The record is a 189-nucleotide RNA from Kerstersia gyiorum, which matches "RT-15 RNA" in Rfam.
RNA sequence: GUGCGCUUGACGCCGGUCUGUCACGGCAGUCCGGACAACGCGCCAAUGAAUCUGGUCGAGCCGCUGGGCCACAAGCCCACCGCCAGGCGCAACAAGGAUAUCAGCGGCCGCCGUCGCAAUGAUCCUGCGCAGUUUGCCCAUUGAAGCCCGCGGGCUUCGAUAGACCGACGUGAAUAGCUCGACAUGACC
Numbered sequence: 001g002u003g004c005g006c007u008u009g010a011c012g013c014c015g016g017u018c019u020g021u022c023a024c025g026g027c028a029g030u031c032c033g034g035a036c037a038a039c040g041c042g043c044c045a046a047u048g049a050a051u052c053u054g055g056u057c058g059a060g061c062c063g064c065u066g067g068g069c070c071a072c073a074a075g076c077c078c079a080c081c082g083c084c085a086g087g088c089g090c091a092a093c094a095a096g097g098a099u100a101u102c103a104g105c106g107g108c109c110g111c112c113g114u115c116g117c118a119a120u121g122a123u124c125c126u127g128c129g130c131a132g133u134u135u136g137c138c139c140a141u142u143g144a145a146g147c148c149c150g151c152g153g154g155c156u157u158c159g160a161u162a163g164a165c166c167g168a169c170g171u172g173a174a175u176a177g178c179u180c181g182a183c184a185u186g187a188c189c
Stems, first nucleotide, its partner, number of pairs: 004042003013034004018029004056182006062082002065079005087130004095126004101122002104117005133168002136165001138163001140161005146155003